RNA: Group II catalytic intron D1-D4-7
RNA sequence: CCCGGCGUGUCCCCACCGGUAUCCUAGGGAGGCGUGCUACCGUUGCGCUGAUGACGGGGUGCGAAGCCCUCCUGACAAUGUACCGAAUUGGGAGAAAACCGUGAGGCUCACUCCCCUCCGGGAAACCCACCCGGUUAAGGGC
Numbered sequence: 001c002c003c004g005g006c007g008u009g010u011c012c013c014c015a016c017c018g019g020u021a022u023c024c025u026a027g028g029g030a031g032g033c034g035u036g037c038u039a040c041c042g043u044u045g046c047g048c049u050g051a052u053g054a055c056g057g058g059g060u061g062c063g064a065a066g067c068c069c070u071c072c073u074g075a076c077a078a079u080g081u082a083c084c085g086a087a088u089u090g091g092g093a094g095a096a097a098a099c100c101g102u103g104a105g106g107c108u109c110a111c112u113c114c115c116c117u118c119c120g121g122g123a124a125a126c127c128c129a130c131c132c133g134g135u136u137a138a139g140g141g142c
Base pairs, nucleotide, nucleotide: 002019003018004017005016007014028072029071030070031069032068033063034062035061036060037059038058040057041056042055043054044053045052090115091114092113093112099106100105118134119133120132121131122130